[Rfam]
The family of this 265-nucleotide RNA from Orenia marismortui is "Bacterial large signal recognition particle RNA". Taxonomically the source falls in Orenia (Bacteria, Bacillati, Bacillota, Clostridia). Rfam's curators write: The signal recognition particle (SRP) is a universally conserved ribonucleoprotein involved in the co-translational targeting of proteins to membranes. The family's RNA type in Rfam is non-coding RNA gene.
RNA sequence: CCGUGCUAAAUGGGGUGGUAGCGGUGCCCUGUAACCCGCAAUCCGCUAUAGCGGGAUUGAAGUUCAUCUUAGUCUAUCUUUCGUAAGGUCUGGCUUAAGUAAGUGGUGUUGACAAUUGGGUCCUACGCAACGGAACUUUAUGAAUCCCGUCAGGUCCGGAAGGAAGCAGCGGUAAGUAAAUGUCUUCCGUGUGCCGUAGGGGUGCCUAAUUCGAGCUAACUGCUUAAGUAACGCUUGGGAAAGGUAGAUGAACAUGAAUGCGCGG
Dot-bracket structure: ((((((..(((((((((.(...).))))))....(((((...........))))))))....(((((.(..(((((.(((((.((((...((..((((((..(((((......((((((((((((((((.(((((((((((.....((((....(((....)))....))))...))))).)..)))))))...))))))...))))))))...))).)).)))))).))...)))).))))).)))))..).))))).))))))